[Rfam]
RNA sequence: GCUGGGUGUGGUGACAUACGCCUGUAAUCCCUGCUACUGGGAAGGCUGAGGCUGGUGGACCACUUGAGCUCCGGAGUUCUGAGCUGCAGUAGGGGUAAAGCUGAUCAGGAGUCAGCACUAAGUCCAGUAUCAUUAUGGUGAGCCCCCAGGAGCACAGGGACCACCAGGAUGCUUUUAAGGAGGGGUGCACCGGCCCAGGUCGGAAACGGAGCAGGUCAAAGCUUCCGUGCCGAUCAGCAGUGGGAUCAGGCCCCUGAAUGGUUGCUGCACUUCCAGCCUGGGCGAGAUAGGGAGACCCAGUCUCAA
Numbered sequence: 001g002c003u004g005g006g007u008g009u010g011g012u013g014a015c016a017u018a019c020g021c022c023u024g025u026a027a028u029c030c031c032u033g034c035u036a037c038u039g040g041g042a043a044g045g046c047u048g049a050g051g052c053u054g055g056u057g058g059a060c061c062a063c064u065u066g067a068g069c070u071c072c073g074g075a076g077u078u079c080u081g082a083g084c085u086g087c088a089g090u091a092g093g094g095g096u097a098a099a100g101c102u103g104a105u106c107a108g109g110a111g112u113c114a115g116c117a118c119u120a121a122g123u124c125c126a127g128u129a130u131c132a133u134u135a136u137g138g139u140g141a142g143c144c145c146c147c148a149g150g151a152g153c154a155c156a157g158g159g160a161c162c163a164c165c166a167g168g169a170u171g172c173u174u175u176u177a178a179g180g181a182g183g184g185g186u187g188c189a190c191c192g193g194c195c196c197a198g199g200u201c202g203g204a205a206a207c208g209g210a211g212c213a214g215g216u217c218a219a220a221g222c223u224u225c226c227g228u229g230c231c232g233a234u235c236a237g238c239a240g241u242g243g244g245a246u247c248a249g250g251c252c253c254c255u256g257a258a259u260g261g262u263u264g265c266u267g268c269a270c271u272u273c274c275a276g277c278c279u280g281g282g283c284g285a286g287a288u289a290g291g292g293a294g295a296c297c298c299a300g301u302c303u304c305a306a
Base pairs, nucleotide, nucleotide: 001046002045003044004023005022006021007020008019009018010017028043029041030040048304049303050302051301052300053299054298055297061292063290064289068283069282070281071280073278074277079276080275081273082272083271085269086268087267088266089265090264091263095262096261098259101256107255108254109253111251112250113244116242117241118240119239122235125232127230128229129228130227131171132170133169134168136166137165138164139163140162143159144158145157172180173179182225183224184223185222186221192217193216194215195214200209201208202207
Dot-bracket structure: ((((((((((......)))))))....(((.........)).)))).((((((((.....(.((...((((.((....(((((.(((((((...((.(..(.....(((.(((..((((..(..(.((((((((.(((((..(((...........)))..))))).))))((.....)).(((((.....((((....(((....)))....))))...))))).)))).)..)...)))).).....)).))))..).))))))))).))).)))).)))).....)).)....))))))))..